[Rfam]
RNA: U4 spliceosomal RNA
RNA sequence: UCUCUUGUGCUCGGGCAUGUACUGUCGCCAGUGAGGUUUCUACCGAGGCACAGUCUUUUGCUGAUUGCAAAUUACACAUCCGAACCCGUCUGGAUCGCUUCGGCAUCCAGCAAUUUUUGGACAAUACCUAA
Numbered sequence: 001u002c003u004c005u006u007g008u009g010c011u012c013g014g015g016c017a018u019g020u021a022c023u024g025u026c027g028c029c030a031g032u033g034a035g036g037u038u039u040c041u042a043c044c045g046a047g048g049c050a051c052a053g054u055c056u057u058u059u060g061c062u063g064a065u066u067g068c069a070a071a072u073u074a075c076a077c078a079u080c081c082g083a084a085c086c087c088g089u090c091u092g093g094a095u096c097g098c099u100u101c102g103g104c105a106u107c108c109a110g111c112a113a114u115u116u117u118u119g120g121a122c123a124a125u126a127c128c129u130a131a
Base pairs, nucleotide, nucleotide: 021054022053023052024051025050027049028048029047035044036043037042088111090110091109092108093107094106095105097104098103
Dot-bracket structure: ....................(((((.(((.....(((....)))..)))))))).................................(.((((((.((....)))))))))....................